RNA sequence: GUAUGUCUUCGGGGCGGGGUGCAAGUCCCCACCGGCGGUGAUUCCCUCAAUGGGCUGAGUCCGCGAGCUGUUUUGCAGCAGGAACCGGUGCGAAUCCGGUACCGACAGUUACAGUCUGGAUGGUAGAAGAUGAGU
Numbered sequence: 001g002u003a004u005g006u007c008u009u010c011g012g013g014g015c016g017g018g019g020u021g022c023a024a025g026u027c028c029c030c031a032c033c034g035g036c037g038g039u040g041a042u043u044c045c046c047u048c049a050a051u052g053g054g055c056u057g058a059g060u061c062c063g064c065g066a067g068c069u070g071u072u073u074u075g076c077a078g079c080a081g082g083a084a085c086c087g088g089u090g091c092g093a094a095u096c097c098g099g100u101a102c103c104g105a106c107a108g109u110u111a112c113a114g115u116c117u118g119g120a121u122g123g124u125a126g127a128a129g130a131u132g133a134g135u
Base pairs, nucleotide, nucleotide: 004132005131006130007129008128009127010126017029018028019027031115032114033104034103035064036063037062038061059102060101067079068078069077084100085099086098087097088096106118107117108116
This 135-nucleotide RNA from Oscillibacter hominis belongs to the Rfam family "FMN riboswitch aptamer (RFN element)". Taxonomically the source falls in Oscillibacter (Bacteria, Bacillati, Bacillota, Oscillospiraceae).